[Rfam]
RNA sequence: ACAAUGAUACUUCUGUCAAGUCGAACUUGAGCGUUAAUGGCGUCGCACGUCAGAUGGCAGUCCGGGCGUAUGCCGGGAAGGUGAGAUUCCUAUGG
Numbered sequence: 001a002c003a004a005u006g007a008u009a010c011u012u013c014u015g016u017c018a019a020g021u022c023g024a025a026c027u028u029g030a031g032c033g034u035u036a037a038u039g040g041c042g043u044c045g046c047a048c049g050u051c052a053g054a055u056g057g058c059a060g061u062c063c064g065g066g067c068g069u070a071u072g073c074c075g076g077g078a079a080g081g082u083g084a085g086a087u088u089c090c091u092a093u094g095g
Stems, first nucleotide, its partner, number of pairs: 012092001013060006061078003065074003079091003
RNA: pemK RNA
Organism: Lachnospiraceae bacterium MD329